Description:
A member of the RNA family "c-di-GMP-I riboswitch aptamer" from Vallicoccus soli, 86 nucleotides long. A search with the family's covariance model found it, with a score of 38 bits.
[Rfam]
RNA sequence: GGCAAGAAACGGCACCCCCGCCGCGAGGCGGGUCCGCAGAGCCAGGGGACCGCGCGACCAGGGUCGCGGUCAGCCCAGCUGCCUCA
Numbered sequence: 001g002g003c004a005a006g007a008a009a010c011g012g013c014a015c016c017c018c019c020g021c022c023g024c025g026a027g028g029c030g031g032g033u034c035c036g037c038a039g040a041g042c043c044a045g046g047g048g049a050c051c052g053c054g055c056g057a058c059c060a061g062g063g064u065c066g067c068g069g070u071c072a073g074c075c076c077a078g079c080u081g082c083c084u085c086a
Base pairs, nucleotide, nucleotide: 012037013036017032018031019030020029021028022027040080041079042078045076046075047074048071049070050069055068056067
Its family is annotated with cyclic-di-GMP binding in the Gene Ontology. Rfam's curators write: GEMM was predicted in a large-scale screen for bacterial structured RNA regulatory elements. Genes associated with GEMM are involved in a diverse array of functions, including chemotaxis regulation, signal transduction, secretion and chitin.